Rfam assigns this 114-nucleotide sequence from Poecilia formosa to the family "Potassium channel RNA editing signal".
On this family, see Bhalla et al., Nat Struct Mol Biol 2004: "Control of human potassium channel inactivation by editing of a small mRNA hairpin".
NCBI's taxonomy places the organism under Eukaryota, Actinopteri, Clupeocephala, Percomorphaceae, Poecilia.
A search with the family's covariance model found it, with a score of 108 bits.
RNA sequence: GUGGGAUACGGUGACAUGUACCCUGCGACCGUUUGGGGUAAAAUGGUUGGCUCCAUGUGCGCGAUUGCUGGUGUUCUGACCAUCUCUCUGCCUGUGCCCGUCAUUGUGUCCAAC
Numbered sequence: 001g002u003g004g005g006a007u008a009c010g011g012u013g014a015c016a017u018g019u020a021c022c023c024u025g026c027g028a029c030c031g032u033u034u035g036g037g038g039u040a041a042a043a044u045g046g047u048u049g050g051c052u053c054c055a056u057g058u059g060c061g062c063g064a065u066u067g068c069u070g071g072u073g074u075u076c077u078g079a080c081c082a083u084c085u086c087u088c089u090g091c092c093u094g095u096g097c098c099c100g101u102c103a104u105u106g107u108g109u110c111c112a113a114c
Stems, first nucleotide, its partner, number of pairs: 001114002004111002007108005013102003018097004037077002040074001050062002
About the family: This family represents a group of sequences related to the human potassium channel Kv1.1 hairpin element which directs the efficient modification of an adenosine to inosine by an adenosine deaminase acting on RNA (ADAR).